[Rfam]
RNA sequence: AUAAGUACCGGGAAUGAAGUUCUCCCUUAGUCUGACUAGAACCGCUUAUAAAGCUGAUGACUUCUGCAUUAUG
Numbered sequence: 001a002u003a004a005g006u007a008c009c010g011g012g013a014a015u016g017a018a019g020u021u022c023u024c025c026c027u028u029a030g031u032c033u034g035a036c037u038a039g040a041a042c043c044g045c046u047u048a049u050a051a052a053g054c055u056g057a058u059g060a061c062u063u064c065u066g067c068a069u070u071a072u073g
Stems, first nucleotide, its partner, number of pairs: 010025003016064006044054003
The record is a 73-nucleotide sequence from Enterocloster bolteae, which matches "Fluoride riboswitch aptamer (crcB RNA motif)" in Rfam.
Rfam's curators put it in the seed alignment.
The organism belongs to Enterocloster bolteae, within Bacteria.
Pairs were carried over by alignment from the consensus structure, which is taken from published work.